[Rfam]
RNA sequence: CCUGGCAUGUUCCUGCCAGUCCCUACGUGGGCGUGCUGCCGUUGCGCUGAUGACGGGGUGCGAAGCCCCACGGACAACGUACCGAAUUGGGUCGAAAUGGUGACAGGCCGACCCUUCCGGGAAGCCUCCCCGGUUAAGGGC
Numbered sequence: 001c002c003u004g005g006c007a008u009g010u011u012c013c014u015g016c017c018a019g020u021c022c023c024u025a026c027g028u029g030g031g032c033g034u035g036c037u038g039c040c041g042u043u044g045c046g047c048u049g050a051u052g053a054c055g056g057g058g059u060g061c062g063a064a065g066c067c068c069c070a071c072g073g074a075c076a077a078c079g080u081a082c083c084g085a086a087u088u089g090g091g092u093c094g095a096a097a098u099g100g101u102g103a104c105a106g107g108c109c110g111a112c113c114c115u116u117c118c119g120g121g122a123a124g125c126c127u128c129c130c131c132g133g134u135u136a137a138g139g140g141c
Base pairs, nucleotide, nucleotide: 002019003018004017005016006015007014027071028070029069030068031067032062033061034060035059036058037057039056040055041054042053043052044051089114090113091112092111098105099104117133118132119131120130121129